[Rfam]
RNA sequence: CGGGACGAACCCCCGAGUCACGAGGGCAGGAGUGGGGGACCCACAGGUUCCACGCCGACACCGUCGGCUCGGGGUGAAGCCGCACCCCUUCGGGAGAAGCACUCCCGGAGCGCGCGGCGGGGCACCUUCCAGCCCCAACCCGACAGCUCACCCCACAGGCGUGGGAAAGGAACACA
Numbered sequence: 001c002g003g004g005a006c007g008a009a010c011c012c013c014c015g016a017g018u019c020a021c022g023a024g025g026g027c028a029g030g031a032g033u034g035g036g037g038g039a040c041c042c043a044c045a046g047g048u049u050c051c052a053c054g055c056c057g058a059c060a061c062c063g064u065c066g067g068c069u070c071g072g073g074g075u076g077a078a079g080c081c082g083c084a085c086c087c088c089u090u091c092g093g094g095a096g097a098a099g100c101a102c103u104c105c106c107g108g109a110g111c112g113c114g115c116g117g118c119g120g121g122g123c124a125c126c127u128u129c130c131a132g133c134c135c136c137a138a139c140c141c142g143a144c145a146g147c148u149c150a151c152c153c154c155a156c157a158g159g160c161g162u163g164g165g166a167a168a169g170g171a172a173c174a175c176a
Stems, first nucleotide, its partner, number of pairs: 011161001013159002018031002032156006042071001072141003080117004120135004
RNA: c-di-AMP riboswitch aptamer (ydaO/yuaA leader)